[Rfam]
Rfam assigns this 192-nucleotide RNA sequence from Planococcus massiliensis to the family "T-box leader". NCBI's taxonomy places the organism under Bacteria, Bacillati, Bacilli, Caryophanaceae, Planococcus. Rfam's curators write: Uncharged tRNA acts as the effector for transcription antitermination of genes in the T-box leader family. T-boxes are found upstream of many aminoacyl-tRNA synthetase genes and some amino acid biosynthetic genes usually in Gram-positive bacteria. The anticodon of a specific tRNA base pairs to a specifier sequence within the T-box motif, and the NCCA acceptor tail of the tRNA base pairs to a conserved bulge in the T-box antiterminator hairpin. The base pairs follow the family's consensus structure, which is taken from published work. The family's RNA type in Rfam is cis-regulatory leader. A search with the family's covariance model found it, with a score of 100 bits. The literature on the family includes a 1994 paper in J Bacteriol by Grundy et al., "Interaction between the acceptor end of tRNA and the T box stimulates antitermination in the Bacillus subtilis tyrS gene: a new role for the discriminator base".
RNA sequence: AUUCAAACGAUGAAGAGUCCGAAGUAGGCGUUGCAAACUUUGUAGAGAGAGCCGGUGGUUGGUGCAAACCGGUCAAAGCGCAGUAGCUGAAUUACAGGCUUGGAGUUUACGGAAGUGCCCCGUACGGCACAUAUUGAGUCGGGAGAAUCAGAUUCUCCAAGCUGGGUGGUACCGCGCAAAAGCGUCCCUGCA
Numbered sequence: 001a002u003u004c005a006a007a008c009g010a011u012g013a014a015g016a017g018u019c020c021g022a023a024g025u026a027g028g029c030g031u032u033g034c035a036a037a038c039u040u041u042g043u044a045g046a047g048a049g050a051g052c053c054g055g056u057g058g059u060u061g062g063u064g065c066a067a068a069c070c071g072g073u074c075a076a077a078g079c080g081c082a083g084u085a086g087c088u089g090a091a092u093u094a095c096a097g098g099c100u101u102g103g104a105g106u107u108u109a110c111g112g113a114a115g116u117g118c119c120c121c122g123u124a125c126g127g128c129a130c131a132u133a134u135u136g137a138g139u140c141g142g143g144a145g146a147a148u149c150a151g152a153u154u155c156u157c158c159a160a161g162c163u164g165g166g167u168g169g170u171a172c173c174g175c176g177c178a179a180a181a182g183c184g185u186c187c188c189u190g191c192a
Stems, first nucleotide, its partner, number of pairs: 007106002015101004027088003032083001040076003051073006110122003142158007164188003174185004